[Rfam]
RNA sequence: GGGGGUAUAGUAUAAUUGGUAGUACAGCAAUCUUGCUCAUUGCUUGUCAAGGUUCAAAUCCUUGUAUCUCCA
Numbered sequence: 001g002g003g004g005g006u007a008u009a010g011u012a013u014a015a016u017u018g019g020u021a022g023u024a025c026a027g028c029a030a031u032c033u034u035g036c037u038c039a040u041u042g043c044u045u046g047u048c049a050a051g052g053u054u055c056a057a058a059u060c061c062u063u064g065u066a067u068c069u070c071c072a
Stems, first nucleotide, its partner, number of pairs: 001071007010025004027043005048064005